The record is a 122-nucleotide RNA sequence from Drosophila simulans, which matches "U5 spliceosomal RNA" in Rfam.
The family's RNA type in Rfam is spliceosomal small nuclear RNA.
From the family's description: U5 RNA is a component of both types of known spliceosome. The precise function of this molecule is unknown, though it is known that the 5' loop is required for splice site selection and p220 binding, and that both the 3' stem-loop and the Sm site are important for Sm protein binding and cap methylation.
[Rfam]
RNA sequence: UCACUCUGGUUUCUCUUCAAUUGUCGAAUAAAUCUUUCGCCUUUUACUAAAGAUUUCCGUGGAGAGGAACACUCUAAUGAGUCUAAACUAAAUUUUUGUUAAGGCAUGAUAACUUAUGUUAU
Numbered sequence: 001u002c003a004c005u006c007u008g009g010u011u012u013c014u015c016u017u018c019a020a021u022u023g024u025c026g027a028a029u030a031a032a033u034c035u036u037u038c039g040c041c042u043u044u045u046a047c048u049a050a051a052g053a054u055u056u057c058c059g060u061g062g063a064g065a066g067g068a069a070c071a072c073u074c075u076a077a078u079g080a081g082u083c084u085a086a087a088c089u090a091a092a093u094u095u096u097u098g099u100u101a102a103g104g105c106a107u108g109a110u111a112a113c114u115u116a117u118g119u120u121a122u
Stems, first nucleotide, its partner, number of pairs: 003082004009070011030056008103120005